The record is a 95-nucleotide RNA sequence from Falseniella ignava, which matches "THF (Tetrahydrofolate) riboswitch aptamer" in Rfam. NCBI's taxonomy places the organism under Bacteria, Bacillota, Bacilli, Lactobacillales, Falseniella ignava. The family's consensus secondary structure is taken from published work. For this family Rfam cites "A disconnect between high-affinity binding and efficient regulation by antifolates and purines in the tetrahydrofolate riboswitch" (Trausch and Batey, Chem Biol, 2014).
RNA sequence: AACAGAGUAAAUGGUCUACGUUAAGUGCCACUGGAUGGGAUGUUGCCAGUGGACGAAGUGCUUUGUGCGCGCGGUCGGCCAUUGCCUCCGCUGUU
Numbered sequence: 001a002a003c004a005g006a007g008u009a010a011a012u013g014g015u016c017u018a019c020g021u022u023a024a025g026u027g028c029c030a031c032u033g034g035a036u037g038g039g040a041u042g043u044u045g046c047c048a049g050u051g052g053a054c055g056a057a058g059u060g061c062u063u064u065g066u067g068c069g070c071g072c073g074g075u076c077g078g079c080c081a082u083u084g085c086c087u088c089c090g091c092u093g094u095u
Base pairs, nucleotide, nucleotide: 001095002094003093004092005091010083011082012081013080014079015078016077018075019073020072021071025054026053028052029051030050031049032048033047034046038089039088040087042085058070059069060068061067